[Rfam]
RNA sequence: CAGGGAACAAUAUCCUGGUGCUGAUGAGUGUGACGAGGAAAACUCCAGCAUCAGUGAUUUUGUUGCCAG
Numbered sequence: 001c002a003g004g005g006a007a008c009a010a011u012a013u014c015c016u017g018g019u020g021c022u023g024a025u026g027a028g029u030g031u032g033a034c035g036a037g038g039a040a041a042a043c044u045c046c047a048g049c050a051u052c053a054g055u056g057a058u059u060u061u062g063u064u065g066c067c068a069g
Stems, first nucleotide, its partner, number of pairs: 006064005012058003015054009

A member of the RNA family "mir-338 microRNA precursor family" from Hemibagrus wyckioides, 69 nucleotides long. Rfam links the family to the GO terms miRNA-mediated post-transcriptional gene silencing and RISC complex. NCBI's taxonomy places the organism under Eukaryota, Opisthokonta, Vertebrata, Clupeocephala, Hemibagrus.